[Rfam]
RNA sequence: GCGGGGUCAAAUCAACGUAAGGUUGAGCAAAGCCCCGCAUGUUCGGGGCUUUUUGCUAUCUGUCGUCUACGAAGGCGCACCGCGCUUUUGUAAGGGUAUCGACUAUGCUUUUGCGCGUAGUCGGGCUGUGAUACUGGGCGCUUCGCCCUUUUUUU
Numbered sequence: 001g002c003g004g005g006g007u008c009a010a011a012u013c014a015a016c017g018u019a020a021g022g023u024u025g026a027g028c029a030a031a032g033c034c035c036c037g038c039a040u041g042u043u044c045g046g047g048g049c050u051u052u053u054u055g056c057u058a059u060c061u062g063u064c065g066u067c068u069a070c071g072a073a074g075g076c077g078c079a080c081c082g083c084g085c086u087u088u089u090g091u092a093a094g095g096g097u098a099u100c101g102a103c104u105a106u107g108c109u110u111u112u113g114c115g116c117g118u119a120g121u122c123g124g125g126c127u128g129u130g131a132u133a134c135u136g137g138g139c140g141c142u143u144c145g146c147c148c149u150u151u152u153u154u155u
Base pairs, nucleotide, nucleotide: 029052030051031050032049033048034047035046036045037044136148137147138146139145

Annotation:
This 155-nucleotide RNA from Gallaecimonas xiamenensis belongs to the Rfam family "Gammaprotebacteria rimP leader". The family's consensus secondary structure is taken from published work.